[Rfam]
RNA: Histone 3' UTR stem-loop
Organism: Cervus hanglu
RNA sequence: CCAAAGGCUCUUUUCAGAGCCACUUAAAAGUUUCUGGGAAGAACUG
Dot-bracket structure: .....((((((....)))))).........................
Numbered sequence: 001c002c003a004a005a006g007g008c009u010c011u012u013u014u015c016a017g018a019g020c021c022a023c024u025u026a027a028a029a030g031u032u033u034c035u036g037g038g039a040a041g042a043a044c045u046g
Stems, first nucleotide, its partner, number of pairs: 006021006